Shown here is a 174-nucleotide sequence from Clostridiaceae bacterium 14S0207, a member of the family "Group II catalytic intron D1-D4-3". The literature on the family includes a 2001 paper in Trends Genet by Bonen and Vogel, "The ins and outs of group II introns". From the family's description: Group II introns are found in rRNA, tRNA and mRNA of organelles in fungi, plants and protists, and also in mRNA in bacteria. NCBI's taxonomy places the organism under Bacteria, Bacillati, Bacillota, Eubacteriales, Clostridiaceae. Pairs were carried over by alignment from the consensus structure.
[Rfam]
RNA sequence: UCCAUUGCGAGAUGGAAUCUGAAGGAAGUCGGAGGGCAAAAUUCCGGUCUGAGGAAUACGAAUCACAUAAGAGGCUGAUUAUAGGUGGAUGAGUUUGCAUAACAAAACAAAGUCCGUAUCACCCGAAAGCUACUACAGUAUAUGUGGCAGAUAUAUGGAAUGAAAGAUUGCGUU
Numbered sequence: 001u002c003c004a005u006u007g008c009g010a011g012a013u014g015g016a017a018u019c020u021g022a023a024g025g026a027a028g029u030c031g032g033a034g035g036g037c038a039a040a041a042u043u044c045c046g047g048u049c050u051g052a053g054g055a056a057u058a059c060g061a062a063u064c065a066c067a068u069a070a071g072a073g074g075c076u077g078a079u080u081a082u083a084g085g086u087g088g089a090u091g092a093g094u095u096u097g098c099a100u101a102a103c104a105a106a107a108c109a110a111a112g113u114c115c116g117u118a119u120c121a122c123c124c125g126a127a128a129g130c131u132a133c134u135a136c137a138g139u140a141u142a143u144g145u146g147g148c149a150g151a152u153a154u155a156u157g158g159a160a161u162g163a164a165a166g167a168u169u170g171c172g173u174u
Base pairs, nucleotide, nucleotide: 001016002015003014004013005012006011028174030172031171037166041161042160043159044158045157046156047152048151049150050149051148063147064146065145066144067143068142074139075138076137079135082132083131084130087115088114089113090112093108094107095106096105